[Rfam]
RNA sequence: AGCUUCUGCCUGGUGUCAGCAAUUUUCUUUCAUUAGGGGAAGGAGUGAGGAAGGUAUCAAAGACCAGCAGACUUGUAAACUUUUGACAGUUUUUACUCUUGAGCUUACUUUUCUGUUUUAUUUAAUCUUCCAAGGAGUGCAGUCACUUGGCAUGUCCACUUCUUUUAAGUGAAAGAGUAGCAAACAUG
Numbered sequence: 001a002g003c004u005u006c007u008g009c010c011u012g013g014u015g016u017c018a019g020c021a022a023u024u025u026u027c028u029u030u031c032a033u034u035a036g037g038g039g040a041a042g043g044a045g046u047g048a049g050g051a052a053g054g055u056a057u058c059a060a061a062g063a064c065c066a067g068c069a070g071a072c073u074u075g076u077a078a079a080c081u082u083u084u085g086a087c088a089g090u091u092u093u094u095a096c097u098c099u100u101g102a103g104c105u106u107a108c109u110u111u112u113c114u115g116u117u118u119u120a121u122u123u124a125a126u127c128u129u130c131c132a133a134g135g136a137g138u139g140c141a142g143u144c145a146c147u148u149g150g151c152a153u154g155u156c157c158a159c160u161u162c163u164u165u166u167a168a169g170u171g172a173a174a175g176a177g178u179a180g181c182a183a184a185c186a187u188g
Stems, first nucleotide, its partner, number of pairs: 002020003007015003029137003033133002036130004040123003047117002049114002052112003069093003073089002094107002097103001147184002150181002153179001155174001157171005
Background:
Rfam assigns this 188-nucleotide sequence from Sciurus carolinensis to the family "Connexin-43 internal ribosome entry site (IRES)". The organism belongs to Sciurus, within Eukaryota. A reference for the family is Schiavi et al. (1999), "Connexin43 mRNA contains a functional internal ribosome entry site", FEBS Lett. Pairs were carried over by alignment from the consensus structure, which is taken from published work. Gene Ontology term of the family: ribosome binding. This family represents the connexin-43 internal ribosome entry site (IRES) which allows cap independent translation during conditions such as heat shock and stress.